[Rfam]
Nucleotides: 104
Base pairs, nucleotide, nucleotide: 001104002103003102004101014095015094016093017092023039024038025037027035042083043082044081045080046079047078060076063073064072
Number, partner (000 for none) and nucleotide at each position: 001104g002103g003102g004101a005000u006000a007000u008000g009000a010000u011000g012000a013000g014095u015094g016093g017092u018000c019000a020000u021000u022000a023039c024038u025037c026000g027035c028000a029000a030000g031000c032000g033000c034000u035027g036000g037025g038024a039023g040000a041000u042083g043082g044081g045080u046079g047078u048000c049000c050000c051000c052000c053000u054000c055000a056000a057000c058000g059000c060076c061000u062000g063073g064072u065000u066000a067000c068000g069000a070000c071000a072064a073063c074000a075000u076060g077000c078047g079046c080045a081044u082043u083042c084000c085000c086000c087000u088000c089000u090000g091000u092017a093016c094015c095014a096000c097000c098000u099000a100000a101004u102003c103002c104001c